[Rfam]
Rfam assigns this 62-nucleotide sequence to the family "RAGATH-18 RNA".
Nucleotides: 062
Base pairs, nucleotide, nucleotide: 001060002059003058004057009049010048011047012046013045022044023043024042030037031036
Number, partner (000 for none) and nucleotide at each position: 001060c002059c003058u004057c005000u006000g007000g008000a009049g010048u011047g012046u013045c014000a015000c016000a017000c018000a019000a020000a021000a022044c023043g024042c025000u026000a027000g028000u029000a030037g031036c032000u033000u034000u035000g036031g037030c038000g039000a040000a041000a042024g043023c044022g045013g046012a047011c048010a049009c050000u051000a052000u053000g054000a055000a056000u057004g058003a059002g060001g061000a062000a
Background:
The family's RNA type in Rfam is small RNA.